[Rfam]
RNA sequence: CUGUCUCAGGGAUGAACCUGUUCCUGAUAUUUAAUGCCAUUAGCUUCACUAUGUCAGCAAAGUUUUCUCUGUCUUCUCUGAUCAUUCAGAAUGGGGAAAUC
Numbered sequence: 001c002u003g004u005c006u007c008a009g010g011g012a013u014g015a016a017c018c019u020g021u022u023c024c025u026g027a028u029a030u031u032u033a034a035u036g037c038c039a040u041u042a043g044c045u046u047c048a049c050u051a052u053g054u055c056a057g058c059a060a061a062g063u064u065u066u067c068u069c070u071g072u073c074u075u076c077u078c079u080g081a082u083c084a085u086u087c088a089g090a091a092u093g094g095g096g097a098a099a100u101c
Stems, first nucleotide, its partner, number of pairs: 037094005053082005060075001